[Rfam]
RNA sequence: UCGCAUCCGCCAACCGGUCCAGCCGUGUCGCGGAAGGUUUCCCAACCAGCUAAUGCCUCCUGAAGGGGGGCGGAAAGUAGCG
Numbered sequence: 001u002c003g004c005a006u007c008c009g010c011c012a013a014c015c016g017g018u019c020c021a022g023c024c025g026u027g028u029c030g031c032g033g034a035a036g037g038u039u040u041c042c043c044a045a046c047c048a049g050c051u052a053a054u055g056c057c058u059c060c061u062g063a064a065g066g067g068g069g070g071c072g073g074a075a076a077g078u079a080g081c082g
Base pairs, nucleotide, nucleotide: 002082003081004080006034007033008032009031010030015025016024017023018022036047037046038045039044049078050077051076055071056070057069058068059067060066061065
The record is an 82-nucleotide RNA from Caenimonas aquaedulcis, which matches "SucA RNA motif" in Rfam. Rfam classes the family as a cis-regulatory element. On this family, see Weinberg et al., Nucleic Acids Res 2007: "Identification of 22 candidate structured RNAs in bacteria using the CMfinder comparative genomics pipeline". The source organism's lineage runs through Bacteria, Pseudomonadati, Betaproteobacteria, Comamonadaceae and Caenimonas.